[Rfam]
RNA: Small nucleolar RNA Z159/U59
RNA sequence: GGUUCUGAUGAUGUUUUUUUUCACAAAACUUUCGUUCUCCUGAGCAAAAAACAGUGCUGAGAAAAUUGGAGACCUGAACUGAAGAACU
Numbered sequence: 001g002g003u004u005c006u007g008a009u010g011a012u013g014u015u016u017u018u019u020u021u022c023a024c025a026a027a028a029c030u031u032u033c034g035u036u037c038u039c040c041u042g043a044g045c046a047a048a049a050a051a052c053a054g055u056g057c058u059g060a061g062a063a064a065a066u067u068g069g070a071g072a073c074c075u076g077a078a079c080u081g082a083a084g085a086a087c088u
Stems, first nucleotide, its partner, number of pairs: 003086004
Dot-bracket structure: ..((((............................................................................))))..